[Rfam]
RNA sequence: GCCCGGAUAGCUCAGUUGGUAGAGCAAGGGAUUGAAAAUCCCUGUGUCGCUGGUUCGAAUCCGGCUCCGGGCA
Dot-bracket structure: (((((((..((((........)))).(((((.......))))).....(((((.......)))))))))))).
Rfam assigns this 73-nucleotide RNA from Candidatus Odyssella acanthamoebae to the family "tRNA".
It is annotated as a transfer RNA.
The organism belongs to Candidatus Odyssella, within Bacteria.